[Rfam]
RNA: mir-24 microRNA precursor family
Organism: Cathartes aura
RNA sequence: UCCUCCGGUGCCUACUGAGCUGAUAUCAGUUCUGAUUUUACACACUGGCUCAGUUCAGGAAGUCGAG
Numbered sequence: 001u002c003c004u005c006c007g008g009u010g011c012c013u014a015c016u017g018a019g020c021u022g023a024u025a026u027c028a029g030u031u032c033u034g035a036u037u038u039u040a041c042a043c044a045c046u047g048g049c050u051c052a053g054u055u056c057a058g059g060a061a062g063u064c065g066a067g
Stems, first nucleotide, its partner, number of pairs: 006067001008064001011062001013060001015058009026048005